[Rfam]
Nucleotides: 060
Base pairs, nucleotide, nucleotide: 010050011049012048013047014046015045027044028043029042030041031040032039
Number, partner (000 for none) and nucleotide at each position: 001000c002000c003000c004000u005000g006000g007000g008000g009000g010050c011049c012048u013047u014046u015045g016000c017000u018000a019000c020000g021000g022000a023000u024000c025000g026000u027044c028043c029042g030041g031040c032039a033000c034000g035000u036000a037000c038000c039032u040031g041030c042029c043028g044027g045015c046014g047013a048012a049011g050010g051000a052000c053000g054000g055000a056000a057000g058000g059000a060000c

Rfam assigns this 60-nucleotide sequence from Kribbella amoyensis to the family "msiK RNA". The source organism's lineage runs through Bacteria, Actinomycetota, Propionibacteriales, Kribbellaceae and Kribbella. The base pairs follow the family's consensus structure, which is taken from published work.